[Rfam]
RNA sequence: UCCUGGUGCCCUUCAUUCCACCGGAAUCUGUCCUUCCCGAAUCCAGAUUUCAGUGAAAUGAAGCCCCUCAGAAA
Numbered sequence: 001u002c003c004u005g006g007u008g009c010c011c012u013u014c015a016u017u018c019c020a021c022c023g024g025a026a027u028c029u030g031u032c033c034u035u036c037c038c039g040a041a042u043c044c045a046g047a048u049u050u051c052a053g054u055g056a057a058a059u060g061a062a063g064c065c066c067c068u069c070a071g072a073a074a
Base pairs, nucleotide, nucleotide: 011063012062013061014060015059016058019055020054021053023051024050025049026048028046029045030044
RNA: mir-205 microRNA precursor family